[Rfam]
This 237-nucleotide sequence from Halalkalibacter okhensis belongs to the Rfam family "Group II catalytic intron D1-D4-6". On this family, see Bonen and Vogel, Trends Genet 2001: "The ins and outs of group II introns". The base pairs follow the family's consensus structure. Lineage of the source: Bacteria > Bacillota > Bacilli > Bacillaceae > Halalkalibacter.
RNA sequence: GGAUUCCCGUAGAGUAAGAACUAGCCAUUCACUCGUAGCGAGUCUUUGGAGGGCUAAGGGUAACUUUAGUCUUUAAGCGUAGACAGUUAGGUAAUGGGUCGAAAGCCAAAUGGUUGACGGAUUGAACCCCAAGGAUGUUAGUAAAUCGAGAGGGCUGAUGUUUUUCCUGCGACAGAAAGCAACAUUACAUUCUUCGUAAAUGGCUAAAGAAUGAAACCUCUCUGGGGUCAGAGACCU
Numbered sequence: 001g002g003a004u005u006c007c008c009g010u011a012g013a014g015u016a017a018g019a020a021c022u023a024g025c026c027a028u029u030c031a032c033u034c035g036u037a038g039c040g041a042g043u044c045u046u047u048g049g050a051g052g053g054c055u056a057a058g059g060g061u062a063a064c065u066u067u068a069g070u071c072u073u074u075a076a077g078c079g080u081a082g083a084c085a086g087u088u089a090g091g092u093a094a095u096g097g098g099u100c101g102a103a104a105g106c107c108a109a110a111u112g113g114u115u116g117a118c119g120g121a122u123u124g125a126a127c128c129c130c131a132a133g134g135a136u137g138u139u140a141g142u143a144a145a146u147c148g149a150g151a152g153g154g155c156u157g158a159u160g161u162u163u164u165u166c167c168u169g170c171g172a173c174a175g176a177a178a179g180c181a182a183c184a185u186u187a188c189a190u191u192c193u194u195c196g197u198a199a200a201u202g203g204c205u206a207a208a209g210a211a212u213g214a215a216a217c218c219u220c221u222c223u224g225g226g227g228u229c230a231g232a233g234a235c236c237u
Base pairs, nucleotide, nucleotide: 012034013033014032018030019029020028025202036089037088038087039086042084043083044082045081047079048078049074050073051072052071053070054069055068056067057066058065059064123231124229126228127227128226129225130224131223148222149221150220151219152218153217154180155179156178159174160173161172162171185216186215188213189212190211191210192209193208194207